A member of the RNA family "Potassium channel RNA editing signal" from Schistosoma japonicum, 115 nucleotides long.

RNA sequence: AUCCAGUUAUGGAGAUAUGGUUCCUGAGACAAUAGUUGGGAAAAUUGUUGGUGGUAUGUGUUCACUUUCCGGAGUUCUUGUGAUUGCUUUACCUGUUCCCGUUAUUGUAUCAAAC
Numbered sequence: 001a002u003c004c005a006g007u008u009a010u011g012g013a014g015a016u017a018u019g020g021u022u023c024c025u026g027a028g029a030c031a032a033u034a035g036u037u038g039g040g041a042a043a044a045u046u047g048u049u050g051g052u053g054g055u056a057u058g059u060g061u062u063c064a065c066u067u068u069c070c071g072g073a074g075u076u077c078u079u080g081u082g083a084u085u086g087c088u089u090u091a092c093c094u095g096u097u098c099c100c101g102u103u104a105u106u107g108u109a110u111c112a113a114a115c
Stems, first nucleotide, its partner, number of pairs: 002114001006111001008109005014103003019098002022095001038078004051063001
Rfam classes the family as a cis-regulatory element. This family represents a group of sequences related to the human potassium channel Kv1.1 hairpin element which directs the efficient modification of an adenosine to inosine by an adenosine deaminase acting on RNA (ADAR). The ADAR modification causes an isoleucine/valine recoding event which lies in the ion-conducting pore of the potassium channel. It is thought that this editing event targets the process of fast inactivation and allows a more rapid recovery from inactivation at negative potentials. The source organism's lineage runs through Eukaryota, Opisthokonta, Neodermata, Trematoda and Schistosoma. A search with the family's covariance model found it, with a score of 77 bits. Pairs were carried over by alignment from the consensus structure, which is taken from published work.